[Rfam]
RNA sequence: AGGAGCGUCCUCAGUGUCCUGUGCUCUCCUGGCCUCUGCCUGUCCCAGGGGGAGCGCAGGAUCUUGGGCUGUGUCCC
Numbered sequence: 001a002g003g004a005g006c007g008u009c010c011u012c013a014g015u016g017u018c019c020u021g022u023g024c025u026c027u028c029c030u031g032g033c034c035u036c037u038g039c040c041u042g043u044c045c046c047a048g049g050g051g052g053a054g055c056g057c058a059g060g061a062u063c064u065u066g067g068g069c070u071g072u073g074u075c076c077c
Stems, first nucleotide, its partner, number of pairs: 002076003010068005016062009025052008
RNA: mir-8791 microRNA precursor family